[Rfam]
Small Cajal body-specific RNA 7: a 308-nucleotide RNA sequence from Turnix velox.

RNA sequence: UGGAAGUGAUGAAACAGAGAUAACUGGAUGUUGUGUGUGUGUGUGUGAGAAAUGGGAUUUGUAGUGGGGUGGGCUGUGGGGAAGGGGGUGUGUUUGUGUGUGAAUGUGUAAAAGAAGCUUCAAACGGGGGCACUGAUGGCUGGGUGCUGAUUCCGGAGUGCAUCUGAGGCAUGUUGUGAAUUUCCAGGGUGCUUUGUUACAACAUUGCCAAUGAUUAAAGCCCAAAAAAAAGCCCACCGUGAGAAGUCUUGAGCAUCCUGAAUCUCUAACAGGUUCAUUCAUGAGAGUGAGCCUGUGAUCUGAUCUGG
Numbered sequence: 001u002g003g004a005a006g007u008g009a010u011g012a013a014a015c016a017g018a019g020a021u022a023a024c025u026g027g028a029u030g031u032u033g034u035g036u037g038u039g040u041g042u043g044u045g046u047g048a049g050a051a052a053u054g055g056g057a058u059u060u061g062u063a064g065u066g067g068g069g070u071g072g073g074c075u076g077u078g079g080g081g082a083a084g085g086g087g088g089u090g091u092g093u094u095u096g097u098g099u100g101u102g103a104a105u106g107u108g109u110a111a112a113a114g115a116a117g118c119u120u121c122a123a124a125c126g127g128g129g130g131c132a133c134u135g136a137u138g139g140c141u142g143g144g145u146g147c148u149g150a151u152u153c154c155g156g157a158g159u160g161c162a163u164c165u166g167a168g169g170c171a172u173g174u175u176g177u178g179a180a181u182u183u184c185c186a187g188g189g190u191g192c193u194u195u196g197u198u199a200c201a202a203c204a205u206u207g208c209c210a211a212u213g214a215u216u217a218a219a220g221c222c223c224a225a226a227a228a229a230a231a232g233c234c235c236a237c238c239g240u241g242a243g244a245a246g247u248c249u250u251g252a253g254c255a256u257c258c259u260g261a262a263u264c265u266c267u268a269a270c271a272g273g274u275u276c277a278u279u280c281a282u283g284a285g286a287g288u289g290a291g292c293c294u295g296u297g298a299u300c301u302g303a304u305c306u307g308g
Stems, first nucleotide, its partner, number of pairs: 001307004172204007179194002182191001184189001

A reference for the family is Darzacq et al. (2002), "Cajal body-specific small nuclear RNAs: a novel class of 2'-O-methylation and pseudouridylation guide RNAs", EMBO J. The organism belongs to Turnix, within Eukaryota. The match comes from Rfam's covariance-model search (158 bits).